[Rfam]
RNA sequence: AAACCCAAAAAAACGAUGGACAAUGUCUUUUAGUCCGUCACUUUUUUGGAUUUUU
Numbered sequence: 001a002a003a004c005c006c007a008a009a010a011a012a013a014c015g016a017u018g019g020a021c022a023a024u025g026u027c028u029u030u031u032a033g034u035c036c037g038u039c040a041c042u043u044u045u046u047u048g049g050a051u052u053u054u055u
Base pairs, nucleotide, nucleotide: 001053002052003051005049006048007047008046009045010044011043012042015039016038017037018036019035020034021033

Source information
This 55-nucleotide RNA from Solanum commersonii belongs to the Rfam family "MIR8008 microRNA precursor family". The source organism's lineage runs through Eukaryota, Viridiplantae, Tracheophyta, Magnoliopsida and Solanum. Gene Ontology terms of the family: miRNA-mediated post-transcriptional gene silencing and RISC complex.